The record is a 144-nucleotide sequence from Oceanobacillus picturae, which matches "FMN riboswitch aptamer (RFN element)" in Rfam.
A search with the family's covariance model found it, with a score of 117 bits.
RNA sequence: UUCCAUCUUCGGGGCAGGGUGCAAUUCCCGACCGACGGUAAGAAGCAAUUUCAUGCUUUAAGUCCGUGACCCGCAAAUUUAUUUGCGGCUGAUCUGGUGCAAGUCCAGAACCGACAGUUAAAGUCUGGAUGGGAGAAGAUGUCG
Numbered sequence: 001u002u003c004c005a006u007c008u009u010c011g012g013g014g015c016a017g018g019g020u021g022c023a024a025u026u027c028c029c030g031a032c033c034g035a036c037g038g039u040a041a042g043a044a045g046c047a048a049u050u051u052c053a054u055g056c057u058u059u060a061a062g063u064c065c066g067u068g069a070c071c072c073g074c075a076a077a078u079u080u081a082u083u084u085g086c087g088g089c090u091g092a093u094c095u096g097g098u099g100c101a102a103g104u105c106c107a108g109a110a111c112c113g114a115c116a117g118u119u120a121a122a123g124u125c126u127g128g129a130u131g132g133g134a135g136a137a138g139a140u141g142u143c144g
Base pairs, nucleotide, nucleotide: 004141005140006139007138008137009136010135017029018028019027031124032123033113034112035067036066037065038064062111063110071088072087093109094108095107096106097105115127116126117125